[Rfam]
RNA sequence: UACGCUCUGGCAGUGUGGUUAGCUGGUUGUGUGGUUUUCCCAUCUUCACAGCCACUAUCCGCCCUGCCGUCGCGCU
Numbered sequence: 001u002a003c004g005c006u007c008u009g010g011c012a013g014u015g016u017g018g019u020u021a022g023c024u025g026g027u028u029g030u031g032u033g034g035u036u037u038u039c040c041c042a043u044c045u046u047c048a049c050a051g052c053c054a055c056u057a058u059c060c061g062c063c064c065u066g067c068c069g070u071c072g073c074g075c076u
Stems, first nucleotide, its partner, number of pairs: 003074003009068002012065002015062004020057003024054008

The record is a 76-nucleotide RNA from Anopheles gambiae, which matches "mir-34 microRNA precursor family" in Rfam. It scores 54 bits against the family's covariance model. Pairs were carried over by alignment from the consensus structure, which was predicted with RNAalifold. Lineage of the source: Eukaryota > Ecdysozoa > Neoptera > Culicoidea > Anopheles gambiae. For this family Rfam cites "Vertebrate microRNA genes" (Lim et al., Science, 2003). Human mir-34a was discovered computationally and later experimentally verified. The mature sequence is excised from the 5' arm of the hairpin. Its Rfam clan is "mir-34 clan". Its family is annotated with RISC complex and miRNA-mediated post-transcriptional gene silencing in the Gene Ontology. Rfam 15.1 lists 2,256 matches to the family in 820 species.